[Rfam]
RNA sequence: CUCUCCGAAAUAACUUUAGGGUUAGCGUUCGGAUAGUUGGCCGUGGGGGUAGAGCGACUGAUUGCGAACGGGGGCCUACCCGGCUACCCGUCGCAGCCAAACUCCGAAUACCGCGGUUCAAGUCCGGGCAGCUAGACGGUGGGGGAUAAUCUUCAUCGUCGAGAGGGGAACAGCCCAGAUCGCCCGCUAAGGUCCCAGAGUCGUGCUCAGUGCGAAAGGAAGUUGGGCUCCGGAGACAGCCAGGAUGUUGGCUUAGAAGCAGCCACCAUUUAAACAACGCGUAAUAGCGGACUGGUCGAGGAGCCCUGCGCCGAUAAUGAACGGGACUCAAGCACGACACCGAAGCGGCGGGUGCAGCGAUGCACGGUAGGAGAGCGUUGGGUGUGCGGCGAAGCGGUACGGGCAACGAUCCGUGGAGCGCACCCAAGUGAUUAU
Dot-bracket structure: ((((((....(((((....))))).((((((((...(.((((((((.....(((....((..((((...((((.(......).)).))...))))..))..)).).....))))))))...)))))))).)...((((((((((......))))))))))....(((......)))...((((.(((...(((......(((((((...........((..((.(((((((.......(((((.(((..(((.........)))..)))(...)(...((......)).).)))))...))))))).)).))...................))))))))))...)))))))(((((....)))))....))))))(.((((((((((......((((..((.....))..))))...))))))))))..).....
The family of this 435-nucleotide part of an RNA from Gemmata obscuriglobus is "Bacterial large subunit ribosomal RNA". Lineage of the source: Bacteria > Pseudomonadati > Planctomycetota > Planctomycetia > Gemmata.